[Rfam]
Nucleotides: 081
Stems, first nucleotide, its partner, number of pairs: 001081002004078004010072001012070005018064001020062010032052002
Number, partner (000 for none) and nucleotide at each position: 001081c002080a003000u004078c005077a006076g007075u008000c009000u010072a011000a012070c013069a014068g015067a016066a017000u018064c019000c020062u021061u022060u023059c024058u025057g026056c027055a028054c029053a030000a031000a032052c033051u034000a035000g036000g037000a038000u039000g040000u041000u042000u043000u044000c045000a046000u047000g048000g049000u050000c051033a052032g053029u054028g055027u056026g057025c058024g059023g060022a061021a062020a063000u064018g065000c066016u067015u068014c069013u070012g071000c072010u073000u074000a075007a076006c077005u078004g079000g080002u081001g

Record summary: mir-147 microRNA precursor family: an 81-nucleotide RNA sequence from Oryzias javanicus. NCBI's taxonomy places the organism under Eukaryota, Craniata, Osteoglossocephalai, Ctenosquamata, Oryzias. The family has 26 seed sequences and 757 matches in Rfam 15.1. On this family, see Ahn et al., Mol Hum Reprod 2010: "MicroRNA transcriptome in the newborn mouse ovaries determined by massive parallel sequencing".